23S methyl RNA motif: a 116-nucleotide RNA from Alkalibacterium kapii. It is annotated as a cis-regulatory element. The organism belongs to Alkalibacterium, within Bacteria. The match comes from Rfam's covariance-model search (64 bits). The literature on the family includes a 2007 paper in Nucleic Acids Res by Weinberg et al., "Identification of 22 candidate structured RNAs in bacteria using the CMfinder comparative genomics pipeline".
[Rfam]
RNA sequence: GGUUCAUUCAUUUUUAUCAGCAAACCCAUCAGAAGCUGAUAAAAGCAAAUGACGACCCAAGGGCUUCAUUAACGUACCGUUUCGCAGUGCUUGACACCGAGGCGGUACGUUUUUUU
Numbered sequence: 001g002g003u004u005c006a007u008u009c010a011u012u013u014u015u016a017u018c019a020g021c022a023a024a025c026c027c028a029u030c031a032g033a034a035g036c037u038g039a040u041a042a043a044a045g046c047a048a049a050u051g052a053c054g055a056c057c058c059a060a061g062g063g064c065u066u067c068a069u070u071a072a073c074g075u076a077c078c079g080u081u082u083c084g085c086a087g088u089g090c091u092u093g094a095c096a097c098c099g100a101g102g103c104g105g106u107a108c109g110u111u112u113u114u115u116u
Stems, first nucleotide, its partner, number of pairs: 002056002004052005011045011071111014087097003